[Rfam]
RNA sequence: GGAUUCCCCUGGCCGUGUGGGUGAGAAGCUGCGCACAGGUUCGAGCCGAGCGAAGCGAGACGACAACGCGCAAGCGUUGCCCGCAGGGUGAGGCCGAAGGCCGAAUCAAUCCCGCACGGCCCACCA
Numbered sequence: 001g002g003a004u005u006c007c008c009c010u011g012g013c014c015g016u017g018u019g020g021g022u023g024a025g026a027a028g029c030u031g032c033g034c035a036c037a038g039g040u041u042c043g044a045g046c047c048g049a050g051c052g053a054a055g056c057g058a059g060a061c062g063a064c065a066a067c068g069c070g071c072a073a074g075c076g077u078u079g080c081c082c083g084c085a086g087g088g089u090g091a092g093g094c095c096g097a098a099g100g101c102c103g104a105a106u107c108a109a110u111c112c113c114g115c116a117c118g119g120c121c122c123a124c125c126a
Stems, first nucleotide, its partner, number of pairs: 015117007022109001032090002036087001040085001042083002047057002064079006
The family of this 126-nucleotide sequence is "RtT RNA". It scores 86 bits against the family's covariance model. The base pairs follow the family's consensus structure, which is taken from published work. Rfam's curators write: This family represents a bacterial cis-regulatory element known as RtT RNA. The exact function of RtT is unknown although it is thought that it may be involved in changing the cellular response in relation to amino acid starvation. By type it is a cis-regulatory element. The family has 57 seed sequences and 651 matches in Rfam 15.1. A reference for the family is Bosl and Kersten (1991), "A novel RNA product of the tyrT operon of Escherichia coli", Nucleic Acids Res. Its family is annotated with cellular response to amino acid starvation in the Gene Ontology.